[Rfam]
RNA sequence: AAAGUCAUGCUAAUUCAAUAUAUUGCAGGAACUAUGUAGGCCU
Numbered sequence: 001a002a003a004g005u006c007a008u009g010c011u012a013a014u015u016c017a018a019u020a021u022a023u024u025g026c027a028g029g030a031a032c033u034a035u036g037u038a039g040g041c042c043u
Stems, first nucleotide, its partner, number of pairs: 005030002008027003012023001